Rfam assigns this 209-nucleotide RNA sequence from Paenibacillus lemnae to the family "glmS glucosamine-6-phosphate activated ribozyme aptamer". It is annotated as a riboswitch.

RNA sequence: AAGCAGUACAAAGCGCCAGAGCUUGAGGAUACGCGGGGAACGGCAAAGGAACAUGAAGUUAGUGUUCUUAAGGCCAUCGGUAUAUCAAGCUGACGAGGUGGAGGUGUUCGAAACGUUCGGCGGGGACCUCCCGGUAUGAUGCACCAGCCGUAAGCCGGAUCGGAAAAGGAAUGGGCGACUGUUCCCACAACGUGCCGGCAGGUGCCACU
Numbered sequence: 001a002a003g004c005a006g007u008a009c010a011a012a013g014c015g016c017c018a019g020a021g022c023u024u025g026a027g028g029a030u031a032c033g034c035g036g037g038g039a040a041c042g043g044c045a046a047a048g049g050a051a052c053a054u055g056a057a058g059u060u061a062g063u064g065u066u067c068u069u070a071a072g073g074c075c076a077u078c079g080g081u082a083u084a085u086c087a088a089g090c091u092g093a094c095g096a097g098g099u100g101g102a103g104g105u106g107u108u109c110g111a112a113a114c115g116u117u118c119g120g121c122g123g124g125g126a127c128c129u130c131c132c133g134g135u136a137u138g139a140u141g142c143a144c145c146a147g148c149c150g151u152a153a154g155c156c157g158g159a160u161c162g163g164a165a166a167a168g169g170a171a172u173g174g175g176c177g178a179c180u181g182u183u184c185c186c187a188c189a190a191c192g193u194g195c196c197g198g199c200a201g202g203u204g205c206c207a208c209u
Stems, first nucleotide, its partner, number of pairs: 020091007100131005108120004132150004137146002154199005168185007